RNA sequence: AUAAUGAUACUCCUGCUCAGUCACAAGUCGAGCGUGAUAAAACCGUCGCAACUAAUGAGGGCAGCUCGGAUGAACUCGGAGAGGUGAAACUCCUGUGG
Numbered sequence: 001a002u003a004a005u006g007a008u009a010c011u012c013c014u015g016c017u018c019a020g021u022c023a024c025a026a027g028u029c030g031a032g033c034g035u036g037a038u039a040a041a042a043c044c045g046u047c048g049c050a051a052c053u054a055a056u057g058a059g060g061g062c063a064g065c066u067c068g069g070a071u072g073a074a075c076u077c078g079g080a081g082a083g084g085u086g087a088a089a090c091u092c093c094u095g096u097g098g
Stems, first nucleotide, its partner, number of pairs: 012095001013064006065081003069077002082094003
Dot-bracket structure: ...........(((((((........................................))))))(((.((.....)).)))(((.......))))...
The record is a 98-nucleotide RNA sequence, which matches "pemK RNA" in Rfam. Rfam classes the family as a cis-regulatory element.